[Rfam]
RNA sequence: CAGGACGGCCGGGUGAUCGCGCGGCGCCAUGUGCGCCUCGAGGAAAGUCCGGGCUCCGCAGAGCAGAACGGUGGCUAACGGCCACUCGGGGAGACCCGCAGGAAAGUGCCACAGAGAGCAGACCGCCCACGGCACGCCGUGCGGUGAGGGUGAAAGGGUGGUGUAAGAGACCACCAGCGCACCGGGCGACCGGUGCGGCUAGGCAAACCCCGUUCGGAGCAAGGUCAGACAGGGUGCAACAGGGCUGCUCGUCCUGCAUCCGGGUAGGCCGCUCGAGCCCAUCGGCAACGAUGGGCCUAGAUGGAUGAUCACCGCCGUGCCCCGGGCGACCGGGCACGUGCACAGAACCCGGCUCACAGGCCGUCCUGUCCC
Numbered sequence: 001c002a003g004g005a006c007g008g009c010c011g012g013g014u015g016a017u018c019g020c021g022c023g024g025c026g027c028c029a030u031g032u033g034c035g036c037c038u039c040g041a042g043g044a045a046a047g048u049c050c051g052g053g054c055u056c057c058g059c060a061g062a063g064c065a066g067a068a069c070g071g072u073g074g075c076u077a078a079c080g081g082c083c084a085c086u087c088g089g090g091g092a093g094a095c096c097c098g099c100a101g102g103a104a105a106g107u108g109c110c111a112c113a114g115a116g117a118g119c120a121g122a123c124c125g126c127c128c129a130c131g132g133c134a135c136g137c138c139g140u141g142c143g144g145u146g147a148g149g150g151u152g153a154a155a156g157g158g159u160g161g162u163g164u165a166a167g168a169g170a171c172c173a174c175c176a177g178c179g180c181a182c183c184g185g186g187c188g189a190c191c192g193g194u195g196c197g198g199c200u201a202g203g204c205a206a207a208c209c210c211c212g213u214u215c216g217g218a219g220c221a222a223g224g225u226c227a228g229a230c231a232g233g234g235u236g237c238a239a240c241a242g243g244g245c246u247g248c249u250c251g252u253c254c255u256g257c258a259u260c261c262g263g264g265u266a267g268g269c270c271g272c273u274c275g276a277g278c279c280c281a282u283c284g285g286c287a288a289c290g291a292u293g294g295g296c297c298u299a300g301a302u303g304g305a306u307g308a309u310c311a312c313c314g315c316c317g318u319g320c321c322c323c324g325g326g327c328g329a330c331c332g333g334g335c336a337c338g339u340g341c342a343c344a345g346a347a348c349c350c351g352g353c354u355c356a357c358a359g360g361c362c363g364u365c366c367u368g369u370c371c372c
Stems, first nucleotide, its partner, number of pairs: 001368010011357001012313007020040002023037005046354002049352005054219004061250004066215005071085005086100001087098004101210002106208002108204003123149002125145003128141005157175006177199001178197008223270004232261006241255005277296008
Dot-bracket structure: ((((((((((((((((((.((.(((((.....))))).)).....[[.[[[[[((((...[[[[.((((((((((.....)))))(((((....)))).)((...(((((............((((((((((....))))).)))..)).......((((((.......)))))).(((((((((....)))))))).)..)))..)))))))))))))...((((.....((((((...(((((.]]]]))))))))))).....))))......((((((((....))))))))..........)))))))..................................]]]]]]]..).))))))))))....
A member of the RNA family "Bacterial RNase P class A" from Kocuria palustris, 372 nucleotides long. A search with the family's covariance model found it, with a score of 293 bits. Rfam links the family to the GO terms ribonuclease P activity, tRNA processing and dimeric ribonuclease P complex. Rfam describes the family as follows. Ribonuclease P (RNase P) is a ubiquitous endoribonuclease, found in archaea, bacteria and eukarya as well as chloroplasts and mitochondria.